[Rfam]
The record is a 48-nucleotide RNA from Clostridium sp. KLE 1755, which matches "uup RNA" in Rfam. Taxonomically the source falls in Clostridium (Bacteria, Bacillati, Eubacteriales, Clostridiaceae). Pairs were carried over by alignment from the consensus structure, which is taken from published work. It is one of the family's seed sequences. It is annotated as a cis-regulatory element.
RNA sequence: GGCGAAUCAACUCUGUACAACUGGAACCGAUGAAACAUUGUACAGAGG
Dot-bracket structure: ..........(((((.(((...................))).))))).